[Rfam]
A member of the RNA family "Flavo-1 RNA" from Leptospira biflexa, 67 nucleotides long. The family's consensus secondary structure is taken from published work. A search with the family's covariance model found it, with a score of 50 bits.
RNA sequence: ACUGCGCCAGCGAUUGCAGCGGAAAUCCUUUCCGUAGGAAAGAUUGGAGCGUAAAGCGCGGUCGUGA
Numbered sequence: 001a002c003u004g005c006g007c008c009a010g011c012g013a014u015u016g017c018a019g020c021g022g023a024a025a026u027c028c029u030u031u032c033c034g035u036a037g038g039a040a041a042g043a044u045u046g047g048a049g050c051g052u053a054a055a056g057c058g059c060g061g062u063c064g065u066g067a
Base pairs, nucleotide, nucleotide: 010059011058012057014055015054019050020049024045025044026043027042030040031039032038033037